[Rfam]
RNA sequence: CGGCGAUGUCUACUAUGCCGUUAUCGUUGUAGGCACUCGGUCAUGCUGUGGGUUGAAAUUACCUUAGACGCUUGUCGUCGAUAGCCUGAUGUGAGGGCGGGUUAGAUGCCCA
Numbered sequence: 001c002g003g004c005g006a007u008g009u010c011u012a013c014u015a016u017g018c019c020g021u022u023a024u025c026g027u028u029g030u031a032g033g034c035a036c037u038c039g040g041u042c043a044u045g046c047u048g049u050g051g052g053u054u055g056a057a058a059u060u061a062c063c064u065u066a067g068a069c070g071c072u073u074g075u076c077g078u079c080g081a082u083a084g085c086c087u088g089a090u091g092u093g094a095g096g097g098c099g100g101g102u103u104a105g106a107u108g109c110c111c112a
Stems, first nucleotide, its partner, number of pairs: 001020004007035007036095004040090004045085003050064004055059001067079004099111004

Source information:
The family of this 112-nucleotide RNA from Ornithinibacillus hominis is "epsC RNA".